[Rfam]
RNA: Eukaryotic large subunit ribosomal RNA, nucleotides 1640 to 2175
RNA sequence: GGUAGUAGCAAGUAUUCAAAUGAGAACUUUGAAGACUGAAGUGGGGAAAGGUUCCGAGUGAACAGCAGUUGGACUCGGGUUAGUCGAUCCUAAGAGAUAGGGAAGCUCCGUUUUAAUACGUGACAAUUUUAUUUUUUUUAAAAGUAAGUUUUUGUCAUACCUAUCGAAAGGGAAACCGGUUAAUAUUCCGGUACCAGGAUUGUGGGUGAUGUAUUGCGGUAACGCAAAUGAACUUGAAGACACUAGCACGAACCCUGGGAAGAGUUUUCUUUUCUUUUUAACAGCUAUAUUUUGAGGAUUGAGGGGUGAGGGGCAACUUUCAUUUUUCUUUUCUCAUUUUCUGCGAGAGCGGGAAAGAGGGCCAUGGAAUCAGUUUGUCUGGAGAUAUGGUUCAAAAGCUGGUAAAGCAGGUCAAUUUUACUGACAUGUCCGGUGCGUUCGUGAUGGUCCGUGAAAAUUCAAGGGAAAUAAUCAGCUUCACGCCUGGUCGUACUCAUAACCGCAGCAGGUCUCCAAGGUGAAUAGCCUCUAGUUGA
Numbered sequence: 001g002g003u004a005g006u007a008g009c010a011a012g013u014a015u016u017c018a019a020a021u022g023a024g025a026a027c028u029u030u031g032a033a034g035a036c037u038g039a040a041g042u043g044g045g046g047a048a049a050g051g052u053u054c055c056g057a058g059u060g061a062a063c064a065g066c067a068g069u070u071g072g073a074c075u076c077g078g079g080u081u082a083g084u085c086g087a088u089c090c091u092a093a094g095a096g097a098u099a100g101g102g103a104a105g106c107u108c109c110g111u112u113u114u115a116a117u118a119c120g121u122g123a124c125a126a127u128u129u130u131a132u133u134u135u136u137u138u139u140a141a142a143a144g145u146a147a148g149u150u151u152u153u154g155u156c157a158u159a160c161c162u163a164u165c166g167a168a169a170g171g172g173a174a175a176c177c178g179g180u181u182a183a184u185a186u187u188c189c190g191g192u193a194c195c196a197g198g199a200u201u202g203u204g205g206g207u208g209a210u211g212u213a214u215u216g217c218g219g220u221a222a223c224g225c226a227a228a229u230g231a232a233c234u235u236g237a238a239g240a241c242a243c244u245a246g247c248a249c250g251a252a253c254c255c256u257g258g259g260a261a262g263a264g265u266u267u268u269c270u271u272u273u274c275u276u277u278u279u280a281a282c283a284g285c286u287a288u289a290u291u292u293u294g295a296g297g298a299u300u301g302a303g304g305g306g307u308g309a310g311g312g313g314c315a316a317c318u319u320u321c322a323u324u325u326u327u328c329u330u331u332u333c334u335c336a337u338u339u340u341c342u343g344c345g346a347g348a349g350c351g352g353g354a355a356a357g358a359g360g361g362c363c364a365u366g367g368a369a370u371c372a373g374u375u376u377g378u379c380u381g382g383a384g385a386u387a388u389g390g391u392u393c394a395a396a397a398g399c400u401g402g403u404a405a406a407g408c409a410g411g412u413c414a415a416u417u418u419u420a421c422u423g424a425c426a427u428g429u430c431c432g433g434u435g436c437g438u439u440c441g442u443g444a445u446g447g448u449c450c451g452u453g454a455a456a457a458u459u460c461a462a463g464g465g466a467a468a469u470a471a472u473c474a475g476c477u478u479c480a481c482g483c484c485u486g487g488u489c490g491u492a493c494u495c496a497u498a499a500c501c502g503c504a505g506c507a508g509g510u511c512u513c514c515a516a517g518g519u520g521a522a523u524a525g526c527c528u529c530u531a532g533u534u535g536a
Stems, first nucleotide, its partner, number of pairs: 015033006034534004043514004049494002054078006063071002085490003089171002094165002096112003100109003120158007175192005195486004201482005206476002215226004233463006242448004247443007255433003258278006282401005292390003296386001299383002408428002411425004500509002516528004